[Rfam]
Shown here is a 133-nucleotide RNA from Cnephaeus nilssonii, a member of the family "Small nucleolar RNA SNORA29".
RNA sequence: UUUCCCAUUGCCACAUUUUUCUCCUAGUAAUAGAUUUUAGUGGCUGUGCUUAUGGAGAUUAAAAUUGCCACGAUCUGAAGAGGGAAGACUUAUUGUUGUCCUCUUCCUAUAUGAAAUGGCUGAACAAGAAAAA
Numbered sequence: 001u002u003u004c005c006c007a008u009u010g011c012c013a014c015a016u017u018u019u020u021c022u023c024c025u026a027g028u029a030a031u032a033g034a035u036u037u038u039a040g041u042g043g044c045u046g047u048g049c050u051u052a053u054g055g056a057g058a059u060u061a062a063a064a065u066u067g068c069c070a071c072g073a074u075c076u077g078a079a080g081a082g083g084g085a086a087g088a089c090u091u092a093u094u095g096u097u098g099u100c101c102u103c104u105u106c107c108u109a110u111a112u113g114a115a116a117u118g119g120c121u122g123a124a125c126a127a128g129a130a131a132a133a
Stems, first nucleotide, its partner, number of pairs: 005055003011043004067120004085108001087106002
The family is grouped with related families in Rfam's "SNORA20 clan". Pairs were carried over by alignment from the consensus structure, which was predicted with PFOLD. The match comes from Rfam's covariance-model search (113 bits). ACA29 is a member of the H/ACA class of snoRNA that guide the sites of modification of uridines to pseudouridines. It is annotated as an H/ACA-box small nucleolar RNA. Gene Ontology terms of the family: RNA processing and nucleolus.